[Rfam]
RNA: Gammaprotebacteria rimP leader
Organism: Candidatus Pantoea carbekii
RNA sequence: AGUCAUAAUGUGGCAUACAGGGUCCACUAGCAAAAAACCUCGGAUUUUCGGGGUUUUUUAUUAUUGAAAAAUCGUAAUAUAAUAGAUAUUAGGCCCUUUUUUA
Numbered sequence: 001a002g003u004c005a006u007a008a009u010g011u012g013g014c015a016u017a018c019a020g021g022g023u024c025c026a027c028u029a030g031c032a033a034a035a036a037a038c039c040u041c042g043g044a045u046u047u048u049c050g051g052g053g054u055u056u057u058u059u060a061u062u063a064u065u066g067a068a069a070a071a072u073c074g075u076a077a078u079a080u081a082a083u084a085g086a087u088a089u090u091a092g093g094c095c096c097u098u099u100u101u102u103a
Base pairs, nucleotide, nucleotide: 034057035056036055037054038053039052040051041050042049085095087093